[Rfam]
RNA sequence: GAUUUCAACUGAAAAAGUCAUCAAUAACAAGGUUGUAUAACUCAUCAAGAUCUAUAACUUCUAUUUUGGUCAUUUCUUCAUCCAACAAAGUGAUUUGUAAGAUUGUUCACAAAAUGCACAUCUCUUAUAAUAUAUAAGAGAUGUGCAUUUUGUGAACAAUCUUACAAAUCACUUUGUUGGAUGAAGAAAUGACCAAAAUAGAAGUUAUAGAUCUUGAUGAGUUAUACAACCUUGUUAUUGAUGACUUUUUCAAUUGAAAUC
Numbered sequence: 001g002a003u004u005u006c007a008a009c010u011g012a013a014a015a016a017g018u019c020a021u022c023a024a025u026a027a028c029a030a031g032g033u034u035g036u037a038u039a040a041c042u043c044a045u046c047a048a049g050a051u052c053u054a055u056a057a058c059u060u061c062u063a064u065u066u067u068g069g070u071c072a073u074u075u076c077u078u079c080a081u082c083c084a085a086c087a088a089a090g091u092g093a094u095u096u097g098u099a100a101g102a103u104u105g106u107u108c109a110c111a112a113a114a115u116g117c118a119c120a121u122c123u124c125u126u127a128u129a130a131u132a133u134a135u136a137a138g139a140g141a142u143g144u145g146c147a148u149u150u151u152g153u154g155a156a157c158a159a160u161c162u163u164a165c166a167a168a169u170c171a172c173u174u175u176g177u178u179g180g181a182u183g184a185a186g187a188a189a190u191g192a193c194c195a196a197a198a199u200a201g202a203a204g205u206u207a208u209a210g211a212u213c214u215u216g217a218u219g220a221g222u223u224a225u226a227c228a229a230c231c232u233u234g235u236u237a238u239u240g241a242u243g244a245c246u247u248u249u250u251c252a253a254u255u256g257a258a259a260u261c
Base pairs, nucleotide, nucleotide: 014248015247016246017245018244019243020242021241023239024238026236027235030232031231032230033229034228035227036226037225038224039223040222041221042220044218045217046216047215048214049213050212051211052210053209055207056206057205058204059203060202061201062200063199064198065197066196067195069193070192071191072190073189074188075187077185078184079183080182081181083179084178085177086176087175088174089173090172091171092170094168096166097165098164099163100162102160103159104158105157106156107155108154109153110152111151112150113149115147116146117145118144119143120142121141
Notes: This 261-nucleotide RNA sequence from Oryza glumipatula belongs to the Rfam family "MIR821 microRNA precursor family". NCBI's taxonomy places the organism under Eukaryota, Streptophytina, Spermatophyta, Oryzinae, Oryza. Its family is annotated with miRNA-mediated post-transcriptional gene silencing and RISC complex in the Gene Ontology.